Notes:
The family of this 111-nucleotide RNA from Pseudothioclava arenosa is "TPP riboswitch aptamer (THI element)". On this family, see Welz and Breaker, RNA 2007: "Ligand binding and gene control characteristics of tandem riboswitches in Bacillus anthracis". Taxonomically the source falls in Pseudothioclava (Bacteria, Pseudomonadati, Alphaproteobacteria, Paracoccaceae).
[Rfam]
RNA sequence: CGCGCUACCUCGGGGUGCCGAGGGGCCUCGCGCCCCCGGCUGAGAUGCGCAAGCGAACCCGUUGAACCUGAACCGGUUAAGACCGGCGGAGGGAAGGUUUCGGCAAUCCAC
Numbered sequence: 001c002g003c004g005c006u007a008c009c010u011c012g013g014g015g016u017g018c019c020g021a022g023g024g025g026c027c028u029c030g031c032g033c034c035c036c037c038g039g040c041u042g043a044g045a046u047g048c049g050c051a052a053g054c055g056a057a058c059c060c061g062u063u064g065a066a067c068c069u070g071a072a073c074c075g076g077u078u079a080a081g082a083c084c085g086g087c088g089g090a091g092g093g094a095a096g097g098u099u100u101c102g103g104c105a106a107u108c109c110a111c
Stems, first nucleotide, its partner, number of pairs: 007098004011061004016055001017040004047054002067092003073086004